[Rfam]
RNA sequence: UCCGGUCCUCGGUAGUGGCUCCCGUCAGCGUGAACACGUUGCGUGGGCCUCGAUCGAAGACCGUC
Numbered sequence: 001u002c003c004g005g006u007c008c009u010c011g012g013u014a015g016u017g018g019c020u021c022c023c024g025u026c027a028g029c030g031u032g033a034a035c036a037c038g039u040u041g042c043g044u045g046g047g048c049c050u051c052g053a054u055c056g057a058a059g060a061c062c063g064u065c
Stems, first nucleotide, its partner, number of pairs: 003063005009057005017049005023043003027040004
RNA: Actino-pnp RNA